[Rfam]
RNA sequence: CUUGGGCGACCCCACCGCCUGCCCGGUUCCCGGCCAUGGCAGCAACCCCAUCGCCGCCGGCUCGCCCAACGU
Numbered sequence: 001c002u003u004g005g006g007c008g009a010c011c012c013c014a015c016c017g018c019c020u021g022c023c024c025g026g027u028u029c030c031c032g033g034c035c036a037u038g039g040c041a042g043c044a045a046c047c048c049c050a051u052c053g054c055c056g057c058c059g060g061c062u063c064g065c066c067c068a069a070c071g072u
Stems, first nucleotide, its partner, number of pairs: 007071002017040003020036002023033003051069001053067001